A member of the RNA family "PyrR binding site" from Bacillus coahuilensis, 109 nucleotides long. Pairs were carried over by alignment from the consensus structure, which is taken from published work. Rfam describes the family as follows. This family represents the PyrR binding site and terminator structure. This RNA structure is found upstream of a variety of genes involved in pyrimidine biosynthesis and transport. It scores 60 bits against the family's covariance model.
RNA sequence: GUACCUUUUAAAUUGGUCCAGAGAGACCAGCAAGGGUUUUUUAAGAGGCAGGGAUGUAUUCCGAUGCUUCUUUCCGUACACCCUUGACACUGUUAAGGGUGUUUUUUAU
Numbered sequence: 001g002u003a004c005c006u007u008u009u010a011a012a013u014u015g016g017u018c019c020a021g022a023g024a025g026a027c028c029a030g031c032a033a034g035g036g037u038u039u040u041u042u043a044a045g046a047g048g049c050a051g052g053g054a055u056g057u058a059u060u061c062c063g064a065u066g067c068u069u070c071u072u073u074c075c076g077u078a079c080a081c082c083c084u085u086g087a088c089a090c091u092g093u094u095a096a097g098g099g100u101g102u103u104u105u106u107u108a109u
Stems, first nucleotide, its partner, number of pairs: 003037006013030006043072008053062001076104001078102011